[Rfam]
RNA sequence: AAAUGCCAUUUGGUAUCUGACACCUGGUCAAUUUUUGUGAUUCUGUGUCUCAAAACAUGGCAGAAAAUGAGGGGGAAUGGAACUUUGCGACACUGGCUGCUCGUAAUGAGCUUCUAGUUACUAUAUACCCAUUUACAUAA
Numbered sequence: 001a002a003a004u005g006c007c008a009u010u011u012g013g014u015a016u017c018u019g020a021c022a023c024c025u026g027g028u029c030a031a032u033u034u035u036u037g038u039g040a041u042u043c044u045g046u047g048u049c050u051c052a053a054a055a056c057a058u059g060g061c062a063g064a065a066a067a068u069g070a071g072g073g074g075g076a077a078u079g080g081a082a083c084u085u086u087g088c089g090a091c092a093c094u095g096g097c098u099g100c101u102c103g104u105a106a107u108g109a110g111c112u113u114c115u116a117g118u119u120a121c122u123a124u125a126u127a128c129c130c131a132u133u134u135a136c137a138u139a140a
Base pairs, nucleotide, nucleotide: 004062005061006060007059008058009057019049020048021047022046023045026042027041028040029039031038076133077132078131079130080129092118093117094116095115096114099111100110101109
RNA: Small nucleolar RNA F1/F2/snoR5a